[Rfam]
RNA sequence: GGUCAAGAGUUCCAGCGACAAGCACCGGCUUGCUGGACGGCAACCCUUCACUGCGAUGGGGUGCCCCGGAACGAGACCCGGCGUCGCGCCCGCGACGCAAGCGCUGACG
Numbered sequence: 001g002g003u004c005a006a007g008a009g010u011u012c013c014a015g016c017g018a019c020a021a022g023c024a025c026c027g028g029c030u031u032g033c034u035g036g037a038c039g040g041c042a043a044c045c046c047u048u049c050a051c052u053g054c055g056a057u058g059g060g061g062u063g064c065c066c067c068g069g070a071a072c073g074a075g076a077c078c079c080g081g082c083g084u085c086g087c088g089c090c091c092g093c094g095a096c097g098c099a100a101g102c103g104c105u106g107a108c109g
Stems, first nucleotide, its partner, number of pairs: 001078004009038001011037006021030002039065003044061003048056002081098007